RNA sequence: GCCAUCGCGAAGGGAGAACCGGCUCUGCCGGUGCCGAAGGAGCAACCGCCCCGGAAACUCUCAGGCCACAGGGACCUUUGCGAAAGA
Numbered sequence: 001g002c003c004a005u006c007g008c009g010a011a012g013g014g015a016g017a018a019c020c021g022g023c024u025c026u027g028c029c030g031g032u033g034c035c036g037a038a039g040g041a042g043c044a045a046c047c048g049c050c051c052c053g054g055a056a057a058c059u060c061u062c063a064g065g066c067c068a069c070a071g072g073g074a075c076c077u078u079u080g081c082g083a084a085a086g087a
Base pairs, nucleotide, nucleotide: 006082007081008080009079010078011077012076013075019031020030021029022028033066034065035064036062037061040060041059042058046054047053
RNA: Glycine riboswitch aptamer
Organism: Salipiger abyssi